[Rfam]
RNA sequence: AUCGUUCAACCUCUUUUAAGAAGAGGUCGGAAGUAGGUUUUUACCGAAGGAACGCGGA
Numbered sequence: 001a002u003c004g005u006u007c008a009a010c011c012u013c014u015u016u017u018a019a020g021a022a023g024a025g026g027u028c029g030g031a032a033g034u035a036g037g038u039u040u041u042u043a044c045c046g047a048a049g050g051a052a053c054g055c056g057g058a
Base pairs, nucleotide, nucleotide: 003054004053005052006051007050009027010026011025012024013023014022015021030055036045037044038043
This 58-nucleotide RNA belongs to the Rfam family "Glutamine riboswitch aptamer (glnA leader)". Rfam links the family to the GO term glutamine binding. The literature on the family includes a 2015 paper in Cell Rep by Ren et al., "Structural and Dynamic Basis for Low-Affinity, High-Selectivity Binding of L-Glutamine by the Glutamine Riboswitch".